[Rfam]
Nucleotides: 129
Base pairs, nucleotide, nucleotide: 003059004057005056006055007054008053017044019042021040022039023038024037025036026035068122069121070120079113080112081110082109083108084107085106086105087104091102093100
Number, partner (000 for none) and nucleotide at each position: 001000a002000c003059u004057g005056g006055a007054g008053g009000a010000c011000u012000a013000a014000u015000c016000a017044g018000g019042c020000u021040g022039a023038g024037u025036c026035u027000g028000a029000a030000g031000a032000g033000u034000g035026a036025g037024a038023c039022u040021c041000a042019g043000a044017u045000g046000a047000u048000g049000g050000u051000a052000g053008c054007c055006u056005c057004c058000u059003a060000a061000a062000c063000g064000a065000a066000a067000a068122g069121g070120g071000a072000u073000g074000g075000a076000g077000a078000g079113a080112g081110c082109a083108g084107u085106c086105c087104u088000g089000c090000u091102u092000a093100c094000a095000g096000a097000g098000a099000a100093g101000c102091g103000g104087a105086g106085g107084g108083c109082u110081g111000a112080c113079u114000g115000c116000g117000c118000c119000a120070u121069c122068c123000a124000a125000c126000a127000c128000u129000u